[Rfam]
A member of the RNA family "HNH endonuclease-associated RNA and ORF (HEARO) RNA" from Salicibibacter halophilus, 206 nucleotides long. For this family Rfam cites "Exceptional structured noncoding RNAs revealed by bacterial metagenome analysis" (Weinberg et al., Nature, 2009). Lineage of the source: Bacteria > Bacillati > Bacilli > Bacillaceae > Salicibibacter. A search with the family's covariance model found it, with a score of 141 bits.
RNA sequence: GCCAAUAACCCACGACUAAAGUCGCGGGCUUGCAAAAGCCCUUAUUGACUAGCCUAAGUCUUUAAUGACUACGUUGUUUGUGUCACGACACCCUGGGGUGCCUGCUCUAGCUCCUUGCCCUGUCGUGUGGGAUUAAAAGUUCUGAUGGGUAGGAACGGUGUUGCACAUGUAAAAAGCACUUACAACAUUGGCGAAGAGCACCUAAC
Numbered sequence: 001g002c003c004a005a006u007a008a009c010c011c012a013c014g015a016c017u018a019a020a021g022u023c024g025c026g027g028g029c030u031u032g033c034a035a036a037a038g039c040c041c042u043u044a045u046u047g048a049c050u051a052g053c054c055u056a057a058g059u060c061u062u063u064a065a066u067g068a069c070u071a072c073g074u075u076g077u078u079u080g081u082g083u084c085a086c087g088a089c090a091c092c093c094u095g096g097g098g099u100g101c102c103u104g105c106u107c108u109a110g111c112u113c114c115u116u117g118c119c120c121u122g123u124c125g126u127g128u129g130g131g132a133u134u135a136a137a138a139g140u141u142c143u144g145a146u147g148g149g150u151a152g153g154a155a156c157g158g159u160g161u162u163g164c165a166c167a168u169g170u171a172a173a174a175a176g177c178a179c180u181u182a183c184a185a186c187a188u189u190g191g192c193g194a195a196g197a198g199c200a201c202c203u204a205a206c
Stems, first nucleotide, its partner, number of pairs: 001049001003047006010028002013024001015022002029038003052192003056188001057070004073186005080179004088123002092117001095114005100202001103200006125168005131162003137159001139156005145150001